RNA sequence: AUAUGUAGUAAUUGUAAGUCGCUUUGGAUAAAAGCGUCAGCUAAAUGACAUGUA
Number, nucleotide and partner (000 for none) at each position: 001a000002u000003a000004u000005g000006u000007a000008g000009u000010a000011a000012u000013u043014g041015u040016a000017a000018g000019u000020c036021g035022c034023u033024u032025u031026g000027g000028a000029u000030a000031a025032a024033a023034g022035c021036g020037u000038c000039a000040g015041c014042u000043a013044a000045a000046u000047g000048a000049c000050a000051u000052g000053u000054a000
UnaL2 LINE 3' element: a 54-nucleotide RNA sequence from Perca fluviatilis. The source organism's lineage runs through Eukaryota, Chordata, Craniata, Euteleosteomorpha and Perca. A search with the family's covariance model found it, with a score of 55 bits. Rfam's curators write: The eel long interspersed element (LINE) UnaL2 and its partner short interspersed element (SINE) share a conserved 3' tail containing a stem-loop that is critical for their retrotransposition. Gene Ontology term of the family: transposition, RNA-mediated. Pairs were carried over by alignment from the consensus structure, which is taken from published work. A reference for the family is Baba et al. (2004), "Solution structure of an RNA stem-loop derived from the 3' conserved region of eel LINE UnaL2", RNA. By type it is a cis-regulatory element.